A member of the RNA family "Prion pseudoknot" from Chaetura pelagica, 50 nucleotides long. NCBI's taxonomy places the organism under Eukaryota, Amniota, Sauropsida, Apodidae, Chaetura. Pairs were carried over by alignment from the consensus structure, which is taken from published work. Gene Ontology term of the family: translation. From the family's description: This family represents a predicted pseudoknot structure found in prion protein mRNA. It has been suggested that the family has a possible effect in prion protein translation. Rfam 15.1 lists 421 matches to the family in 241 species. On this family, see Barrette et al., Nucleic Acids Res 2001: "Pseudoknots in prion protein mRNAs confirmed by comparative sequence analysis and pattern searching". It is annotated as a cis-regulatory element.
[Rfam]
RNA sequence: CCGUGGUGGUGGCUCUGGGGACACAGUGAUGUCCCCACGGUGGUGGCUUG
Numbered sequence: 001c002c003g004u005g006g007u008g009g010u011g012g013c014u015c016u017g018g019g020g021a022c023a024c025a026g027u028g029a030u031g032u033c034c035c036c037a038c039g040g041u042g043g044u045g046g047c048u049u050g
Base pairs, nucleotide, nucleotide: 001040002039003038004037005036006035